Rfam assigns this 79-nucleotide sequence from Medicago truncatula to the family "MIR5298 microRNA precursor family". The organism belongs to Medicago, within Eukaryota. Rfam links the family to the GO terms RISC complex and miRNA-mediated post-transcriptional gene silencing.

[Rfam]
RNA sequence: CAUUUUCUUCUGGAUUUUUUCUGAGAUUUUUGUUGGUGAAGGUUGAUGGAGAUGAUAUGAAGAUGAAAAAGAGGAGAAA
Numbered sequence: 001c002a003u004u005u006u007c008u009u010c011u012g013g014a015u016u017u018u019u020u021c022u023g024a025g026a027u028u029u030u031u032g033u034u035g036g037u038g039a040a041g042g043u044u045g046a047u048g049g050a051g052a053u054g055a056u057a058u059g060a061a062g063a064u065g066a067a068a069a070a071g072a073g074g075a076g077a078a079a
Stems, first nucleotide, its partner, number of pairs: 005073005011067001014064006025044007